[Rfam]
Rfam assigns this 139-nucleotide RNA from Enterococcus casseliflavus to the family "FMN riboswitch aptamer (RFN element)".

RNA sequence: AGUAUUCUUCGGGGCAGGGUGUAAUUCCCGACCGACGGUGACAAGCGCAAUGCUUGAAGUCCGUGACCCGCAUAGCUAUGCGGUGGAGCCAGUGUGAAUCUGGCACCGACAGUGAAAGUCUGGAUGGGAGAAGAAAAAC
Numbered sequence: 001a002g003u004a005u006u007c008u009u010c011g012g013g014g015c016a017g018g019g020u021g022u023a024a025u026u027c028c029c030g031a032c033c034g035a036c037g038g039u040g041a042c043a044a045g046c047g048c049a050a051u052g053c054u055u056g057a058a059g060u061c062c063g064u065g066a067c068c069c070g071c072a073u074a075g076c077u078a079u080g081c082g083g084u085g086g087a088g089c090c091a092g093u094g095u096g097a098a099u100c101u102g103g104c105a106c107c108g109a110c111a112g113u114g115a116a117a118g119u120c121u122g123g124a125u126g127g128g129a130g131a132a133g134a135a136a137a138a139c
Stems, first nucleotide, its partner, number of pairs: 003137001005135006017029003031119002033108002035064004059106002068083002088104005110122003

About the family: The RFN element is a highly conserved domain that is found frequently in the 5'-untranslated regions of prokaryotic mRNAs that encode for flavin mononucleotide (FMN) biosynthesis and transport proteins.
The base pairs follow the family's consensus structure, which is taken from published work.
NCBI's taxonomy places the organism under Bacteria, Bacillati, Enterococcaceae, Enterococcus, Enterococcus casseliflavus.